This 99-nucleotide RNA from Oryctolagus cuniculus belongs to the Rfam family "Vault RNA". For this family Rfam cites "Evolution of Vault RNAs" (Stadler et al., Mol Biol Evol, 2009). The family has 73 seed sequences and 2,873 matches in Rfam 15.1. Lineage of the source: Eukaryota > Deuterostomia > Eutheria > Euarchontoglires > Oryctolagus.

RNA sequence: GGGCUGGUUUUAGCUCAGCGGUUCCUUCGGCUACUGAAUCAGACGUAGUCACCAACUUGGUGGUGGUUCGAGCCCCGCGGGCGCUUUCCCAGUCCUUUU
Dot-bracket structure: .((((((.....((((.((((....(((((.....................................)))))..))))))))......)))))).....